Source information
This 63-nucleotide sequence from Actinophytocola oryzae belongs to the Rfam family "Actino-pnp RNA". The match comes from Rfam's covariance-model search (69 bits). NCBI's taxonomy places the organism under Bacteria, Bacillati, Actinomycetota, Actinomycetes, Actinophytocola.
RNA sequence: GCCGGUCCUCGGUAGUGGUCUCCGGGUGAAGAAGAACCCCGGGGACUUCGAUCGAAGACCGGC
Dot-bracket structure: (((((((.(((((...((((((((((...........))))))))))...))))).)))))))
Numbered sequence: 001g002c003c004g005g006u007c008c009u010c011g012g013u014a015g016u017g018g019u020c021u022c023c024g025g026g027u028g029a030a031g032a033a034g035a036a037c038c039c040c041g042g043g044g045a046c047u048u049c050g051a052u053c054g055a056a057g058a059c060c061g062g063c
Stems, first nucleotide, its partner, number of pairs: 001063007009055005017047010